RNA: mir-160 microRNA precursor family
Organism: Musa acuminata
RNA sequence: UUCUGCCUGGCUCCCUGAAUGCCAUCUAAGAAGCUUUGUCGAUGCAGUUGGCAUACUUCCUAGUUGGCAUCUGGGGAGCCAUGCAGAC
Numbered sequence: 001u002u003c004u005g006c007c008u009g010g011c012u013c014c015c016u017g018a019a020u021g022c023c024a025u026c027u028a029a030g031a032a033g034c035u036u037u038g039u040c041g042a043u044g045c046a047g048u049u050g051g052c053a054u055a056c057u058u059c060c061u062a063g064u065u066g067g068c069a070u071c072u073g074g075g076g077a078g079c080c081a082u083g084c085a086g087a088c
Stems, first nucleotide, its partner, number of pairs: 002087005008081007016073002019070006027062002